[Rfam]
RNA sequence: GUUCGCAGAGGUGAGAACGGCCUUCUCACGCUCCUGGAAACAGGGAAGUAGCCGCAAGGUGAAGAGAUCCGGGACUUGGCAUCCGGCUCGAAC
Dot-bracket structure: (((((.((..(((((....[[[..))))).(((((......))))..................)....(((((....]]].))))))))))))